The family of this 103-nucleotide RNA from Oceanobacillus halophilus is "SAM riboswitch aptamer (S box leader)".
Nucleotides: 103
Stems, first nucleotide, its partner, number of pairs: 001103008013042005021031003025079004043071004048067002050063004075095001080092005
Number, partner (000 for none) and nucleotide at each position: 001103u002102u003101c004100u005099u006098a007097u008096c009000c010000a011000g012000a013042g014041a015040g016039g017038u018000g019000g020000a021031g022030g023029g024000a025079c026078u027077g028076g029023c030022c031021c032000u033000a034000c035000g036000a037000a038017g039016c040015c041014u042013c043071g044070g045069c046068a047000a048067c049066a050063g051062c052061u053060u054000u055000u056000u057000u058000a059000a060053a061052a062051g063050u064000a065000a066049u067048g068046u069045g070044c071043c072000a073000a074000u075095u076028c077027c078026a079025g080092a081091a082090g083089c084088g085000u086000c087000a088084u089083g090082c091081u092080u093000a094000a095075a096008g097007a098006u099005a100004a101003g102002a103001a